[Rfam]
RNA sequence: GCGGGUGGCUGGAUGGCCGCGGGGAUUUCCCCGAGGAAAGUCCGGACUCCACAAAGCAAUGGUGCCGGGUAACGCCCGGGCGGGGCAACCCGACGGAAAGCGCCACAGAAAUGAAACCGCCCAUGUCCGCAUGGGUAAGGGUGAAACGGUGGAGUAAGAGCCCACCGGGGGACUGGCAACAGGACCCGCAUGGCAAGCCCCACCAGGAGCAAUGCCGAAUAGGAUCCUUGCGCGGAGUUGAUCGGGCAACCGAUAUGGCCGCAGGGUGGCUUUGGCCCAAAGGAUCGGGUUGGCAGCUAGAGGGCCAUGGGCAACCAUGGUUCAAGAGGAAUGGUCAUCCAAGGGGGCAACCCCUGGACAGAAUCCGGCUUAUAGGCCGCCCGCGCGU
Numbered sequence: 001g002c003g004g005g006u007g008g009c010u011g012g013a014u015g016g017c018c019g020c021g022g023g024g025a026u027u028u029c030c031c032c033g034a035g036g037a038a039a040g041u042c043c044g045g046a047c048u049c050c051a052c053a054a055a056g057c058a059a060u061g062g063u064g065c066c067g068g069g070u071a072a073c074g075c076c077c078g079g080g081c082g083g084g085g086c087a088a089c090c091c092g093a094c095g096g097a098a099a100g101c102g103c104c105a106c107a108g109a110a111a112u113g114a115a116a117c118c119g120c121c122c123a124u125g126u127c128c129g130c131a132u133g134g135g136u137a138a139g140g141g142u143g144a145a146a147c148g149g150u151g152g153a154g155u156a157a158g159a160g161c162c163c164a165c166c167g168g169g170g171g172a173c174u175g176g177c178a179a180c181a182g183g184a185c186c187c188g189c190a191u192g193g194c195a196a197g198c199c200c201c202a203c204c205a206g207g208a209g210c211a212a213u214g215c216c217g218a219a220u221a222g223g224a225u226c227c228u229u230g231c232g233c234g235g236a237g238u239u240g241a242u243c244g245g246g247c248a249a250c251c252g253a254u255a256u257g258g259c260c261g262c263a264g265g266g267u268g269g270c271u272u273u274g275g276c277c278c279a280a281a282g283g284a285u286c287g288g289g290u291u292g293g294c295a296g297c298u299a300g301a302g303g304g305c306c307a308u309g310g311g312c313a314a315c316c317a318u319g320g321u322u323c324a325a326g327a328g329g330a331a332u333g334g335u336c337a338u339c340c341a342a343g344g345g346g347g348c349a350a351c352c353c354c355u356g357g358a359c360a361g362a363a364u365c366c367g368g369c370u371u372a373u374a375g376g377c378c379g380c381c382c383g384c385g386c387g388u
Stems, first nucleotide, its partner, number of pairs: 001384010011373001012339007020033005038371003042368005047209004055272002060205005065079005080094001081092004095200002100198002102194003117140002119136007148166005167189001168187003173182003213295004223286006264278004303322008
A member of the RNA family "Bacterial RNase P class A" from Rhodobacteraceae bacterium HIMB11, 388 nucleotides long.
The organism belongs to Paracoccaceae, within Bacteria.